[Rfam]
RNA: Gag/pol translational readthrough site
Organism: Neotoma lepida
RNA sequence: UAGGGGAGACGGGGCUCAGACCCCCUCCUUGAGCCUAGGGUAACUCUCAAAGUGGAGGGGAA
Numbered sequence: 001u002a003g004g005g006g007a008g009a010c011g012g013g014g015c016u017c018a019g020a021c022c023c024c025c026u027c028c029u030u031g032a033g034c035c036u037a038g039g040g041u042a043a044c045u046c047u048c049a050a051a052g053u054g055g056a057g058g059g060g061a062a
Base pairs, nucleotide, nucleotide: 008041010039012036013035014034015033016031018029019028022060023059024058025057026056027055